[Rfam]
RNA sequence: AUUGCGUUAGGGAUAGUAGUGAAAAUCCUUUUUAUGUCAGUUCGAGUGAAUUUGCCUAAGCAAAUUUGUAUCGAGAACUGCGUAAAAAGAUUGAAACGGAUAGCCUGUUAAAAC
Dot-bracket structure: .........(((.((...((...((((..((((((((..........................................)))))))).))))...))...)).)))........
A member of the RNA family "Flavo-1 RNA" from Tenacibaculum soleae, 114 nucleotides long. The family's RNA type in Rfam is small RNA.